[Rfam]
RNA sequence: CGGGGAGAACCGACGUUAGGGAAUUCGGCAAGUUAGUCCCGUACGUUCGCAAUAAGGGAUGCCUGCCUCGGAAUGAGGCAGGUCGCAGCGACUCGGACGCUCCAACUGUCUAAUAACAACACAGGUGACCGCAAAUCCGCAAGGACUCGUACGGUCACUGAAUCCUGCCCAGUGCGGGUAUCUGAACACCCGGUACAACGGGACGAAGGACCCGUCAACGGCGGGGGUAACUAUGACCCUCUUAAGGUAGCGUAGUACCUUGCCGCUUCAGUAGCGGCUCGCAUGAAUGGAUGAAUGAGAGCGUCACUGUCCCAACGUUGGGCCCGGUGAACUGUACGUUCCAGUGCGGAGUCUGGAGA
Numbered sequence: 001c002g003g004g005g006a007g008a009a010c011c012g013a014c015g016u017u018a019g020g021g022a023a024u025u026c027g028g029c030a031a032g033u034u035a036g037u038c039c040c041g042u043a044c045g046u047u048c049g050c051a052a053u054a055a056g057g058g059a060u061g062c063c064u065g066c067c068u069c070g071g072a073a074u075g076a077g078g079c080a081g082g083u084c085g086c087a088g089c090g091a092c093u094c095g096g097a098c099g100c101u102c103c104a105a106c107u108g109u110c111u112a113a114u115a116a117c118a119a120c121a122c123a124g125g126u127g128a129c130c131g132c133a134a135a136u137c138c139g140c141a142a143g144g145a146c147u148c149g150u151a152c153g154g155u156c157a158c159u160g161a162a163u164c165c166u167g168c169c170c171a172g173u174g175c176g177g178g179u180a181u182c183u184g185a186a187c188a189c190c191c192g193g194u195a196c197a198a199c200g201g202g203a204c205g206a207a208g209g210a211c212c213c214g215u216c217a218a219c220g221g222c223g224g225g226g227g228u229a230a231c232u233a234u235g236a237c238c239c240u241c242u243u244a245a246g247g248u249a250g251c252g253u254a255g256u257a258c259c260u261u262g263c264c265g266c267u268u269c270a271g272u273a274g275c276g277g278c279u280c281g282c283a284u285g286a287a288u289g290g291a292u293g294a295a296u297g298a299g300a301g302c303g304u305c306a307c308u309g310u311c312c313c314a315a316c317g318u319u320g321g322g323c324c325c326g327g328u329g330a331a332c333u334g335u336a337c338g339u340u341c342c343a344g345u346g347c348g349g350a351g352u353c354u355g356g357a358g359a
Stems, first nucleotide, its partner, number of pairs: 001326004010321008019312003036060005045050001061083009084088001096305007103297002107121003124159008132149001136145003162292004167222003172219002174215005181210003189202004223241006242246001262278006340357005